[Rfam]
RNA: U2 spliceosomal RNA
RNA sequence: ACAGUGUUUUCACGUACAGGCUUAGAUCAAGUGUAGUAUCUGUUCUUUUCAGUUUAAUCUCUGAAAGAUCGUCACAGACGGUCACAUUGAUUAUACUUAUUUUUGUCCUUCGGGGAUGGUCCGCUGUGCUUGCGCAUGAUCAUUCCCAUAGUUUCCCUGGUAUUACACUGCCUCCAGGUGAAGCGAACAACU
Numbered sequence: 001a002c003a004g005u006g007u008u009u010u011c012a013c014g015u016a017c018a019g020g021c022u023u024a025g026a027u028c029a030a031g032u033g034u035a036g037u038a039u040c041u042g043u044u045c046u047u048u049u050c051a052g053u054u055u056a057a058u059c060u061c062u063g064a065a066a067g068a069u070c071g072u073c074a075c076a077g078a079c080g081g082u083c084a085c086a087u088u089g090a091u092u093a094u095a096c097u098u099a100u101u102u103u104u105g106u107c108c109u110u111c112g113g114g115g116a117u118g119g120u121c122c123g124c125u126g127u128g129c130u131u132g133c134g135c136a137u138g139a140u141c142a143u144u145c146c147c148a149u150a151g152u153u154u155c156c157c158u159g160g161u162a163u164u165a166c167a168c169u170g171c172c173u174c175c176a177g178g179u180g181a182a183g184c185g186a187a188c189a190a191c192u
Stems, first nucleotide, its partner, number of pairs: 007026003013020001047066006067083007112147008125136004151184005156178005